[Rfam]
Nucleotides: 223
Stems, first nucleotide, its partner, number of pairs: 001005001013219007020211002024034001026032001037073007046062001048060004077205003082134002086132002088128004093124001096123003104115001106113002136155004141151002156160001176192005
Number, partner (000 for none) and nucleotide at each position: 001005g002000g003000u004000g005001c006000a007000g008000a009000c010000c011000a012000g013219g014218g015217g016216a017215a018214u019213c020211u021210g022000a023000c024034u025000c026032u027000u028000u029000a030000a031000a032026a033000c034024a035000a036000a037073g038072c039071a040070u041069c042068g043067c044000c045000a046062a047000g048060g049059c050058c051057c052000a053000c054000g055000g056000c057051g058050g059049g060048u061000g062046u063000u064000g065000a066000c067043g068042c069041g070040a071039u072038g073037u074000g075000a076000u077205u078204u079203c080000u081000u082134c083133c084000c085000a086132g087131u088128g089127c090126u091125c092000u093124g094000a095000a096123u097122g098121u099000c100000a101000a102000a103000g104115u105000g106113a107112a108000g109000a110000a111000a112107u113106u114000a115104a116000a117000u118000g119000a120000a121098g122097c123096g124093u125091g126090g127089g128088u129000a130000a131087a132086c133083g134082g135000c136155g137154g138153g139152a140000g141151g142150u143000a144000a145000c146000u147000a148000u149000g150142a151141c152139u153138c154137u155136c156160u157000u158000a159000a160156g161000g162000u163000a164000g165000c166000c167000a168000a169000a170000u171000g172000c173000c174000u175000c176192g177191u178190c179189a180188u181000c182000u183000a184000a185000u186000u187000a188180g189179u190178g191177a192176u193000g194000c195000a196000c197000a198000u199000g200000a201000a202000u203079g204078g205077a206000u207000g208000a209000a210021c211020g212000a213019g214018a215017u216016u217015u218014c219013c220000a221000c222000c223000g

Shown here is a 223-nucleotide part of an RNA from Cercocebus atys, a member of the family "Eukaryotic large subunit ribosomal RNA". Pairs were carried over by alignment from the consensus structure, which is taken from published work. It scores 2262 bits against the family's covariance model. Its family is annotated with ribosome and structural constituent of ribosome in the Gene Ontology. Lineage of the source: Eukaryota > Eumetazoa > Teleostomi > Catarrhini > Cercocebus.